[Rfam]
RNA: Small nucleolar RNA SNORA20
RNA sequence: CUUCUCACUUAUUUGUUGCUACAGUCUCACAGUGAUAAGAGCAGUUAUACACAUGGGAUAAAACAGUAUUGGGCCAUUAUAAAUUAAGACAGAGUAAAUAACCAUUUUCAUCUCUUUUGCAUAGAUUAGACAUUG
Numbered sequence: 001c002u003u004c005u006c007a008c009u010u011a012u013u014u015g016u017u018g019c020u021a022c023a024g025u026c027u028c029a030c031a032g033u034g035a036u037a038a039g040a041g042c043a044g045u046u047a048u049a050c051a052c053a054u055g056g057g058a059u060a061a062a063a064c065a066g067u068a069u070u071g072g073g074c075c076a077u078u079a080u081a082a083a084u085u086a087a088g089a090c091a092g093a094g095u096a097a098a099u100a101a102c103c104a105u106u107u108u109c110a111u112c113u114c115u116u117u118u119g120c121a122u123a124g125a126u127u128a129g130a131c132a133u134u135g
Stems, first nucleotide, its partner, number of pairs: 003058005015045006023036001025035002069129004074124001076122001078121001080119002087113003091108005